[Rfam]
RNA sequence: GAACAAGGGCGCAGGGCGAAUGCCUUGGCACUGGGAGCCGAUGAAAGACGUGAUAAGCUGCGAUAAGCUUCGGGGAGCUGCAAAUAAGCAUUGAUCCGGAGAUUUCUGAAUGAGGAAACUCACCUGGGUUCAUACUCAGGUACGUUAUACUGAACUUAAAAAUAGGUAUAUCGAGGGAACCGCCUGAACUGAAACAUCUAAGUAGGGCGAGGAAGAGACAUCAAACGAGAUUCCGUAAGUAGUGGCGAGCGAACGCGGAAGAGGGCAAACCGGAAGUAGAAAUACUUCCGGGGUACGGACCGCAUUUAGGACUUGAGUUGUUAACCGAACGGCAUGGGAAGGCCGGUCAGAGAGUGUGAGAACCACGUAGGUGAAAACGACAAGAGCUGAGCGAGUUCCAGAGUACGGCCAGACACGUGAAACCUGGUCGGAAUAUGGGGGGACCACCCUCCAACCCUAAAUACUACCCAGUGACCGAUAGCGUAUAGUACUGUGAAGGAAAGGUGAAAAGCACCCCGGGAGGGGAGUGAAAAAGAACCUGAAACCCUGUGCCUACAAG
Number, nucleotide and partner (000 for none) at each position: 001g000002a000003a000004c000005a000006a000007g554008g553009g552010c551011g550012c549013a548014g547015g546016g545017c000018g000019a000020a000021u000022g539023c504024c503025u000026u000027g476028g475029c473030a472031c471032u470033g469034g468035g467036a465037g464038c176039c175040g000041a000042u000043g000044a000045a000046a107047g106048a105049c062050g061051u060052g000053a000054u000055a000056a000057g000058c000059u000060g051061c050062g049063a000064u000065a000066a000067g000068c101069u100070u099071c098072g097073g096074g095075g000076a000077g089078c088079u087080g000081c000082a000083a000084a000085u000086a000087a079088g078089c077090a000091u000092u000093g000094a000095u074096c073097c072098g071099g070100a069101g068102a000103u000104u000105u048106c047107u046108g000109a000110a000111u000112g121113a120114g119115g000116a000117a000118a000119c114120u113121c112122a141123c140124c139125u138126g137127g136128g135129u000130u000131c000132a000133u000134a000135c128136u127137c126138a125139g124140g123141u122142a000143c173144g172145u000146u170147a169148u168149a167150c166151u165152g000153a000154a000155c000156u000157u000158a000159a000160a000161a000162a000163u000164a000165g151166g150167u149168a148169u147170a146171u000172c144173g143174a000175g039176g038177g000178a000179a000180c211181c209182g208183c207184c206185u205186g000187a000188a000189c000190u000191g198192a197193a000194a000195c000196a000197u192198c191199u000200a000201a000202g000203u000204a000205g185206g184207g183208c182209g181210a000211g180212g000213a000214a000215g000216a000217g000218a000219c000220a000221u228222c227223a000224a000225a000226c000227g222228a221229g000230a000231u461232u259233c258234c257235g256236u255237a000238a000239g000240u000241a000242g250243u249244g000245g000246c000247g000248a000249g243250c242251g000252a000253a000254c000255g236256c235257g234258g233259a232260a000261g000262a458263g457264g456265g455266c000267a000268a000269a000270c291271c290272g289273g288274a287275a286276g285277u000278a000279g000280a000281a000282a000283u000284a000285c276286u275287u274288c273289c272290g271291g270292g000293g000294u000295a000296c000297g399298g398299a000300c000301c393302g392303c391304a000305u000306u000307u000308a000309g000310g387311a000312c386313u385314u384315g000316a000317g381318u380319u379320g378321u377322u376323a000324a372325c371326c370327g000328a000329a000330c345331g344332g343333c342334a000335u000336g000337g000338g000339a000340a000341g000342g333343c332344c331345g330346g000347u000348c352349a000350g000351a000352g348353a000354g366355u365356g364357u000358g000359a000360g000361a000362a000363c000364c356365a355366c354367g000368u000369a000370g326371g325372u324373g000374a000375a000376a322377a321378c320379g319380a318381c317382a000383a000384g314385a313386g312387c310388u000389g000390a000391g303392c302393g301394a000395g000396u000397u000398c298399c297400a000401g000402a000403g000404u000405a000406c430407g429408g428409c427410c426411a425412g424413a000414c000415a000416c000417g000418u000419g000420a000421a000422a000423c000424c412425u411426g410427g409428u408429c407430g406431g000432a000433a000434u000435a000436u000437g452438g451439g450440g449441g448442g000443a000444c000445c000446a000447c000448c441449c440450u439451c438452c437453a000454a000455c265456c264457c263458u262459a000460a000461a231462u000463a000464c037465u036466a000467c035468c034469c033470a032471g031472u030473g029474a000475c028476c027477g000478a000479u000480a000481g000482c000483g000484u000485a000486u000487a000488g000489u000490a000491c498492u497493g000494u000495g000496a000497a492498g491499g000500a000501a000502a000503g024504g023505u000506g000507a000508a000509a000510a000511g000512c000513a000514c525515c524516c523517c522518g000519g000520g000521a000522g517523g516524g515525g514526a000527g000528u000529g000530a000531a000532a000533a000534a000535g000536a000537a000538c000539c022540u000541g000542a000543a000544a000545c016546c015547c014548u013549g012550u011551g010552c009553c008554u007555a000556c000557a000558a000559g000
RNA: Bacterial large subunit ribosomal RNA, nucleotides 9 to 567